This 173-nucleotide RNA from Oceanobacillus piezotolerans belongs to the Rfam family "glmS glucosamine-6-phosphate activated ribozyme aptamer". A reference for the family is Hampel and Tinsley (2006), "Evidence for preorganization of the glmS ribozyme ligand binding pocket", Biochemistry.
RNA sequence: GUAUUGAAAAAAGCGCCAGGACUAUUUUUCGGACGAAAGGGAAAAAUAGUUGACGAGGUGGAGGUUAUCGAGAGUUUCGGCGGAUGCCUCCCGACUGUACAUCUCAGUCGUCUAGGAUUUAUUCUAAAAACAAUAGGGUGACUUAUUGGACAAAGGGAUAAAUCAAGAUGUCA
Numbered sequence: 001g002u003a004u005u006g007a008a009a010a011a012a013g014c015g016c017c018a019g020g021a022c023u024a025u026u027u028u029u030c031g032g033a034c035g036a037a038a039g040g041g042a043a044a045a046a047u048a049g050u051u052g053a054c055g056a057g058g059u060g061g062a063g064g065u066u067a068u069c070g071a072g073a074g075u076u077u078c079g080g081c082g083g084a085u086g087c088c089u090c091c092c093g094a095c096u097g098u099a100c101a102u103c104u105c106a107g108u109c110g111u112c113u114a115g116g117a118u119u120u121a122u123u124c125u126a127a128a129a130a131c132a133a134u135a136g137g138g139u140g141a142c143u144u145a146u147u148g149g150a151c152a153a154a155g156g157g158a159u160a161a162a163u164c165a166a167g168a169u170g171u172c173a
Stems, first nucleotide, its partner, number of pairs: 020051008029042001060091005068080004092110006117163007131148007